[Rfam]
RNA sequence: AUAGAUUGCAAUGAGGAUAACAAGCUCCCUCUUCUGAUUAAAGCUGAGGACAAUAGUUGGCUGAAUCGAACCUAAUUAUAAUCGCCACUACUGAGUAA
Numbered sequence: 001a002u003a004g005a006u007u008g009c010a011a012u013g014a015g016g017a018u019a020a021c022a023a024g025c026u027c028c029c030u031c032u033u034c035u036g037a038u039u040a041a042a043g044c045u046g047a048g049g050a051c052a053a054u055a056g057u058u059g060g061c062u063g064a065a066u067c068g069a070a071c072c073u074a075a076u077u078a079u080a081a082u083c084g085c086c087a088c089u090a091c092u093g094a095g096u097a098a
Base pairs, nucleotide, nucleotide: 006098007097008096009095

Small nucleolar RNA R30/Z108: a 98-nucleotide RNA from Papaver nudicaule. NCBI's taxonomy places the organism under Eukaryota, Viridiplantae, Tracheophyta, Magnoliopsida, Papaver. Gene Ontology terms of the family: RNA processing and nucleolus. snoR30 is a C/D box small nucleolar RNA which acts as a methylation guide for 18S ribosomal RNA in plants. Clan: SNORD100 clan. By type it is a C/D-box small nucleolar RNA. For this family Rfam cites "Experimental RNomics. Identification of 140 Candidates for Small Non-Messenger RNAs in the Plant Arabidopsis thaliana" (Marker et al., Curr Biol, 2002).